[Rfam]
RNA sequence: CCGGGACCAAGCAACCUCCCGGACAGGCCCUGAGCCCAAGCGUUGC
Dot-bracket structure: ((((((....[[[[[.))))))...(((.....))).....]]]]]
The family of this 46-nucleotide RNA sequence from Altererythrobacter sp. TH136 is "chrB-b RNA". It is annotated as a cis-regulatory element. NCBI's taxonomy places the organism under Bacteria, Pseudomonadati, Alphaproteobacteria, Erythrobacteraceae, Altererythrobacter.